[Rfam]
RNA: GlmZ RNA activator of glmS mRNA
Organism: Klebsiella michiganensis
RNA sequence: GUGGCUCAUUCACCUUCUUAUGUCAGCCCCUUCGGGACGCGCUACAUAAACUUCGAAUGACGCACAAACAGGUGCCUGCCGUCCAACUCCUGAUAACAGCUCUGCUUUAUCAGUCAUCGGGCGAAACGUCGAGUAAGGCACCGCCUCAUUUCUUAAUAAAGCCAGGCUCCUGUAGCCUGGCUUUAUUAU
Dot-bracket structure: ...((((((....(.(..(....(................)..)...)......).)))).)).......(((((((...((((.......((((............)))).......)))).............)))))))...............(((((((((((.....))))))))))).....
Numbered sequence: 001g002u003g004g005c006u007c008a009u010u011c012a013c014c015u016u017c018u019u020a021u022g023u024c025a026g027c028c029c030c031u032u033c034g035g036g037a038c039g040c041g042c043u044a045c046a047u048a049a050a051c052u053u054c055g056a057a058u059g060a061c062g063c064a065c066a067a068a069c070a071g072g073u074g075c076c077u078g079c080c081g082u083c084c085a086a087c088u089c090c091u092g093a094u095a096a097c098a099g100c101u102c103u104g105c106u107u108u109a110u111c112a113g114u115c116a117u118c119g120g121g122c123g124a125a126a127c128g129u130c131g132a133g134u135a136a137g138g139c140a141c142c143g144c145c146u147c148a149u150u151u152c153u154u155a156a157u158a159a160a161g162c163c164a165g166g167c168u169c170c171u172g173u174a175g176c177c178u179g180g181c182u183u184u185a186u187u188a189u
Stems, first nucleotide, its partner, number of pairs: 004063002006060004014055001016048001019044001024041001071142007081122004092111004158184011